This 91-nucleotide RNA sequence from Mikania micrantha belongs to the Rfam family "Small nucleolar RNA snoR26".
Rfam links the family to the GO terms RNA processing and nucleolus.
The source organism's lineage runs through Eukaryota, Viridiplantae, Asterales, Asteroideae and Mikania.
A search with the family's covariance model found it, with a score of 71 bits.
It is annotated as a C/D-box small nucleolar RNA.
RNA sequence: AGAGAACCGAUGAAGAUACUCUUGAAUUUGUCAUCCUUGCACUUUGAUUCAUAAUGAAGAAAACAAUGGGGAAAGUAACUCUGAGGUUCUU
Numbered sequence: 001a002g003a004g005a006a007c008c009g010a011u012g013a014a015g016a017u018a019c020u021c022u023u024g025a026a027u028u029u030g031u032c033a034u035c036c037u038u039g040c041a042c043u044u045u046g047a048u049u050c051a052u053a054a055u056g057a058a059g060a061a062a063a064c065a066a067u068g069g070g071g072a073a074a075g076u077a078a079c080u081c082u083g084a085g086g087u088u089c090u091u
Base pairs, nucleotide, nucleotide: 002091003090004089005088006087007086008085